The family of this 140-nucleotide RNA from Nitrobacter hamburgensis is "Group II catalytic intron D1-D4-4". The family has 90 seed sequences and 840 matches in Rfam 15.1. The sequence is in the family's curated seed alignment. For this family Rfam cites "The ins and outs of group II introns" (Bonen and Vogel, Trends Genet, 2001). Group II introns are found in rRNA, tRNA and mRNA of organelles in fungi, plants and protists, and also in mRNA in bacteria.

RNA sequence: CUAUGGAGGAAGGUUCCAUCCGGAGAGUUGUCGAUUGAUCCGGAAGCUGACGAGCGGCGCGGCCGGGCAACUGGCCUCGUCGAAGCCUCGUGACAAAGGCCGCCUUGGGCGGCCGAGCGAUCCAACGGGCCGUAACGUGA
Numbered sequence: 001c002u003a004u005g006g007a008g009g010a011a012g013g014u015u016c017c018a019u020c021c022g023g024a025g026a027g028u029u030g031u032c033g034a035u036u037g038a039u040c041c042g043g044a045a046g047c048u049g050a051c052g053a054g055c056g057g058c059g060c061g062g063c064c065g066g067g068c069a070a071c072u073g074g075c076c077u078c079g080u081c082g083a084a085g086c087c088u089c090g091u092g093a094c095a096a097a098g099g100c101c102g103c104c105u106u107g108g109g110c111g112g113c114c115g116a117g118c119g120a121u122c123c124a125a126c127g128g129g130c131c132g133u134a135a136c137g138u139g140a
Stems, first nucleotide, its partner, number of pairs: 020043005050091005055082005098114006117133003